[Rfam]
RNA sequence: GGGCUUGAACGCGCAUCGGAAGUCGCUUACAUGACGCCCCGUCAGCUUGCUGACUAUGGCGAUAAACGGCGCGUGGAAUAAACGUUGUGGACCCGGGGGCAGUGCCCGGCGCCUCCACCAGUUUCCCCGGAUAUCCGGGAUCAUGGGGGCGAAACAGGCUCGACACGCGUAGUAAAGACCCGCUCUUUGCUCGGCAUUGUACCGCCGUUAUCGGGCUAACACACAAGUGCCAACGAUAAUGAGGCGCUCGCUGUCGCUGCAUAAGCGAUAAGCGCGGUUCGGGGGGCACCGGGCAACAGAAGCCCCCCAAU
Number, nucleotide and partner (000 for none) at each position: 001g000002g000003g000004c000005u000006u000007g000008a000009a000010c000011g000012c000013g000014c000015a000016u000017c000018g000019g000020a000021a000022g000023u000024c000025g000026c000027u000028u000029a000030c000031a000032u000033g000034a000035c000036g000037c000038c000039c000040c000041g054042u053043c052044a051045g050046c000047u000048u000049g000050c045051u044052g043053a042054c041055u000056a000057u000058g191059g190060c189061g188062a187063u000064a000065a000066a000067c000068g184069g183070c182071g181072c000073g179074u178075g000076g000077a000078a000079u000080a000081a000082a000083c169084g168085u167086u000087g166088u165089g164090g000091a000092c000093c109094c108095g107096g106097g105098g000099g000100c000101a000102g000103u000104g000105c097106c096107c095108g094109g093110c151111g150112c149113c148114u147115c146116c145117a000118c000119c000120a000121g000122u000123u000124u000125c000126c000127c000128c000129g000130g000131a000132u000133a000134u000135c000136c000137g000138g000139g000140a000141u000142c000143a000144u000145g116146g115147g114148g113149g112150c111151g110152a000153a000154a000155c000156a000157g000158g000159c000160u000161c000162g000163a000164c089165a088166c087167g085168c084169g083170u000171a000172g000173u000174a000175a000176a000177g000178a074179c073180c000181c071182g070183c069184u068185c000186u000187u062188u061189g060190c059191u058192c207193g206194g205195c204196a000197u218198u000199g216200u000201a000202c214203c213204g195205c194206c193207g192208u000209u000210a000211u000212c000213g203214g202215g000216c199217u000218a197219a000220c000221a000222c000223a000224c000225a000226a000227g000228u000229g000230c000231c000232a000233a000234c000235g000236a000237u000238a000239a000240u000241g000242a000243g000244g000245c000246g000247c000248u000249c000250g000251c000252u000253g000254u000255c000256g000257c000258u000259g000260c000261a000262u000263a000264a000265g000266c000267g000268a000269u000270a000271a000272g000273c000274g000275c291276g290277g289278u288279u000280c000281g308282g307283g306284g305285g304286g303287c000288a278289c277290c276291g275292g000293g000294c000295a000296a000297c000298a000299g000300a000301a000302g000303c286304c285305c284306c283307c282308c281309a000310a000311u000
The family of this 311-nucleotide RNA from Rhodopila globiformis is "Alphaproteobacteria transfer-messenger RNA". Lineage of the source: Bacteria > Alphaproteobacteria > Acetobacterales > Acetobacteraceae > Rhodopila. Rfam links the family to the GO term RNA catabolic process. It is annotated as a non-coding RNA gene. From the family's description: Bacterial tmRNA, also known as 10Sa RNA or SsrA, is named for its dual tRNA and mRNA-like properties.